The record is a 137-nucleotide RNA sequence from Jaculus jaculus, which matches "Small nucleolar RNA SNORA29" in Rfam. Clan: SNORA20 clan. It is annotated as an H/ACA-box small nucleolar RNA. Pairs were carried over by alignment from the consensus structure, which was predicted with PFOLD. Rfam's curators write: ACA29 is a member of the H/ACA class of snoRNA that guide the sites of modification of uridines to pseudouridines. The organism belongs to Jaculus, within Eukaryota.
RNA sequence: UUUCCCAUUUGACUAUCACAUGUUCUCCUAAUUGUAAAUUGUGGCUGUGCUUGUGGGAUAGAUUAAAGGCGCCACAAUCUGAAGAGGUUGGGUUUUCCAGUGUCCUUCCUCUGUAUGAAAUGGGUGGACAGAAAAAU
Numbered sequence: 001u002u003u004c005c006c007a008u009u010u011g012a013c014u015a016u017c018a019c020a021u022g023u024u025c026u027c028c029u030a031a032u033u034g035u036a037a038a039u040u041g042u043g044g045c046u047g048u049g050c051u052u053g054u055g056g057g058a059u060a061g062a063u064u065a066a067a068g069g070c071g072c073c074a075c076a077a078u079c080u081g082a083a084g085a086g087g088u089u090g091g092g093u094u095u096u097c098c099a100g101u102g103u104c105c106u107u108c109c110u111c112u113g114u115a116u117g118a119a120a121u122g123g124g125u126g127g128a129c130a131g132a133a134a135a136a137u
Stems, first nucleotide, its partner, number of pairs: 004057004016044004072123003090111003